[Rfam]
RNA sequence: AAUGCCGGAGGUGGGAAACUGCGUUGCACCCACGCACCCUAUGGGUUAAAAGAGAUGUAGUAGAUAGCGACGGAUACCCGGCAUA
Numbered sequence: 001a002a003u004g005c006c007g008g009a010g011g012u013g014g015g016a017a018a019c020u021g022c023g024u025u026g027c028a029c030c031c032a033c034g035c036a037c038c039c040u041a042u043g044g045g046u047u048a049a050a051a052g053a054g055a056u057g058u059a060g061u062a063g064a065u066a067g068c069g070a071c072g073g074a075u076a077c078c079c080g081g082c083a084u085a
Base pairs, nucleotide, nucleotide: 002084003083004082005081006080007079008078011033012032013031014030015029023071024070025069026068027067035052036046037045038044039043057077058076059075061073
Rfam assigns this 85-nucleotide sequence to the family "skipping-rope RNA". The family's consensus secondary structure is taken from published work.